[Rfam]
RNA sequence: GGCUGUGCGUCCACCAACCUUGGAUCUGCAGCAUCCAAAGCUGACCCUCUGCCGCAGGGUAUACAACAGGUGGACACACAGUC
Numbered sequence: 001g002g003c004u005g006u007g008c009g010u011c012c013a014c015c016a017a018c019c020u021u022g023g024a025u026c027u028g029c030a031g032c033a034u035c036c037a038a039a040g041c042u043g044a045c046c047c048u049c050u051g052c053c054g055c056a057g058g059g060u061a062u063a064c065a066a067c068a069g070g071u072g073g074a075c076a077c078a079c080a081g082u083c
Base pairs, nucleotide, nucleotide: 001083002082003081004080005079006078007077009075010074011073012072013071020038021037022036023035024034025033044060045059046058047057048056
Record summary: The record is an 83-nucleotide sequence from Drosophila melanogaster, which matches "bZIP non canonical Hac1/Xbp1 intron" in Rfam. The family's consensus secondary structure was predicted with RNAfold. The sequence is in the family's curated seed alignment. A reference for the family is Hooks and Griffiths-Jones (2011), "Conserved RNA structures in the non-canonical Hac1/Xbp1 intron", RNA Biol. bZIP intron RNA is a non-canonical intron that was first reported in HAC1 gene in yeast and XBP1 gene in Metazoa.